Rfam assigns this 46-nucleotide RNA sequence from Labrus bergylta to the family "Histone 3' UTR stem-loop".

RNA sequence: ACAAAGGCUCUUUUAAGAGCCACCACAUCACAACUAAAGAGAAAAU
Numbered sequence: 001a002c003a004a005a006g007g008c009u010c011u012u013u014u015a016a017g018a019g020c021c022a023c024c025a026c027a028u029c030a031c032a033a034c035u036a037a038a039g040a041g042a043a044a045a046u
Stems, first nucleotide, its partner, number of pairs: 006021006

The organism belongs to Labrus, within Eukaryota. It is annotated as a cis-regulatory element. The family has 50 seed sequences and 44,596 matches in Rfam 15.1. A search with the family's covariance model found it, with a score of 38 bits.